[Rfam]
RNA sequence: GAGGCGGUAUCCAAUAUCGAACUGCACUCUUACAAGAUCUUCAUUUAUAACGUUUUUAACAUGAACCAUAUUGUUAGCUUAACGGAUGAUGACGGAUUCUGCUCUGAGCCUGGAGGGACCGAGACAGAAGG
Number, nucleotide and partner (000 for none) at each position: 001g029002a028003g027004g025005c024006g023007g022008u021009a000010u020011c019012c000013a000014a000015u000016a000017u000018c000019g011020a010021a008022c007023u006024g005025c004026a000027c003028u002029c001030u000031u000032a000033c000034a000035a000036g000037a000038u000039c000040u000041u000042c000043a000044u000045u000046u000047a000048u000049a000050a000051c000052g000053u000054u000055u000056u000057u000058a000059a000060c000061a000062u000063g000064a000065a000066c000067c000068a000069u000070a000071u000072u000073g000074u000075u000076a000077g000078c000079u000080u000081a000082a000083c000084g000085g000086a000087u000088g000089a000090u000091g000092a000093c000094g000095g000096a000097u000098u000099c127100u126101g125102c123103u122104c121105u000106g119107a000108g000109c117110c116111u000112g000113g000114a000115g000116g110117g109118a000119c106120c000121g104122a103123g102124a000125c101126a100127g099128a000129a000130g000131g000
RNA: pan motif